Nucleotides: 134
Stems, first nucleotide, its partner, number of pairs: 003055006010049001014045001016041003020037001022035001024033003057074002060071002062068001080120004084112003088107006
Number, partner (000 for none) and nucleotide at each position: 001000u002000u003055g004054c005053a006052u007051a008050g009000a010049g011000a012000a013000c014045a015000c016041c017040c018039a019000u020037g021000u022035g023000u024033g025032c026031u027000u028000u029000g030000u031026a032025g033024c034000u035022c036000c037020c038000u039018u040017g041016g042000c043000u044000u045014u046000a047000c048000a049010u050008c051007u052006g053005u054004g055003c056000u057074a058073a059000a060071u061070g062068a063000a064000u065000c066000u067000a068062u069000g070061u071060a072000c073058u074057u075000u076000u077000a078000c079000c080120u081119c082118u083117g084112c085111g086110u087000u088107a089106g090105a091104a092103g093102a094000u095000g096000c097000c098000u099000u100000u101000u102093u103092c104091u105090u106089c107088u108000a109000u110086a111085c112084g113000u114000a115000u116000u117083c118082a119081g120080a121000a122000g123000u124000a125000c126000a127000g128000u129000a130000c131000a132000g133000u134000u
This 134-nucleotide RNA from Xenopus laevis belongs to the Rfam family "Small nucleolar RNA SNORA22". Rfam's curators write: ACA22 is a member of the H/ACA class of snoRNA that guide the sites of modification of uridines to pseudouridines. By type it is an H/ACA-box small nucleolar RNA. Taxonomically the source falls in Xenopus (Eukaryota, Teleostomi, Dipnotetrapodomorpha, Batrachia). Gene Ontology terms of the family: nucleolus and RNA processing.